[Rfam]
The family of this 128-nucleotide sequence from Clostridium oryzae is "c-di-AMP riboswitch aptamer (ydaO/yuaA leader)". Taxonomically the source falls in Clostridium (Bacteria, Clostridia, Eubacteriales, Clostridiaceae).
RNA sequence: UAUAAAACUAAGCCGAAUCUCCAUAUGGAGUACGGGGGAAUUCUUUACAGGGGUGAAUCUUCGCUAUGAAGUAGGGUGCCUCAACCCAAACCCGUCAACUAACCUCGGAGGCAAUAGAGGAGGAAAUA
Number, nucleotide and partner (000 for none) at each position: 001u000002a000003u000004a000005a000006a000007a000008c000009u000010a000011a000012g112013c111014c110015g000016a000017a000018u000019c030020u029021c000022c000023a000024u000025a000026u000027g000028g000029a020030g019031u000032a000033c107034g106035g105036g104037g103038g000039a000040a000041u000042u050043c000044u000045u000046u000047a000048c000049a000050g042051g093052g092053g091054u000055g000056a000057a000058u000059c071060u070061u069062c068063g000064c000065u000066a000067u000068g062069a061070a060071g059072u000073a000074g087075g086076g085077u084078g000079c000080c000081u000082c000083a000084a077085c076086c075087c074088a000089a000090a000091c053092c052093c051094g000095u000096c000097a000098a000099c000100u000101a000102a000103c037104c036105u035106c034107g033108g000109a000110g014111g013112c012113a000114a000115u000116a000117g000118a000119g000120g000121a000122g000123g000124a000125a000126a000127u000128a000
Notes: Gene Ontology terms of the family: regulation of gene expression and cyclic-di-AMP binding.